[Rfam]
RNA sequence: AUCGUUCAACUCUUCGGAGUCGGAAGUAAGUGAAAGCUGAAGGAACGCGCU
Number, nucleotide and partner (000 for none) at each position: 001a000002u000003c047004g046005u045006u044007c043008a000009a020010c019011u018012c017013u000014u000015c000016g000017g012018a011019g010020u009021c000022g000023g048024a000025a000026g000027u000028a000029a038030g037031u036032g000033a000034a000035a000036g031037c030038u029039g000040a000041a000042g000043g007044a006045a005046c004047g003048c023049g000050c000051u000